[Rfam]
RNA: FMN riboswitch aptamer (RFN element)
RNA sequence: AUUGACACAAGAGGAGAGGUGUAAUUCCUUACUGGUGGUAUAGUCCACAACUCCCCGAGUGGGACUGAUAUGGCGAAAUUCCAUAACCGACGGUGAUAGUCCGGAUCGUAUUCGAAUCAAG
Number, nucleotide and partner (000 for none) at each position: 001a000002u000003u119004g118005a117006c000007a000008c114009a112010a111011g000012a000013g000014g000015a000016g000017a029018g028019g027020u000021g000022u000023a000024a000025u000026u000027c019028c018029u017030u000031a100032c099033u089034g088035g048036u047037g046038g045039u000040a000041u000042a000043g087044u086045c038046c037047a036048c035049a000050a000051c000052u064053c063054c000055c000056c000057g000058a000059g000060u000061g000062g000063g053064a052065c000066u000067g000068a000069u085070a084071u083072g082073g081074c000075g000076a000077a000078a000079u000080u000081c073082c072083a071084u070085a069086a044087c043088c034089g033090a000091c103092g102093g101094u000095g000096a000097u000098a000099g032100u031101c093102c092103g091104g000105a000106u000107c000108g000109u000110a000111u010112u009113c000114g008115a000116a000117u005118c004119a003120a000121g000